[Rfam]
RNA sequence: CGGUAAAGCUAGGGGGGCCUUAGGGCUGAGAGGACUUUGUCCGACCCUUGAACCUGAUGUGGUUAACACCACCGUAGGAAAGCUGAAUUUAUAUUUU
Numbered sequence: 001c002g003g004u005a006a007a008g009c010u011a012g013g014g015g016g017g018c019c020u021u022a023g024g025g026c027u028g029a030g031a032g033g034a035c036u037u038u039g040u041c042c043g044a045c046c047c048u049u050g051a052a053c054c055u056g057a058u059g060u061g062g063u064u065a066a067c068a069c070c071a072c073c074g075u076a077g078g079a080a081a082g083c084u085g086a087a088u089u090u091a092u093a094u095u096u097u
Stems, first nucleotide, its partner, number of pairs: 007084004011048004016042001017026003033041003053078004059072004
A member of the RNA family "TPP riboswitch aptamer (THI element)" from Dendrosporobacter quercicolus, 97 nucleotides long.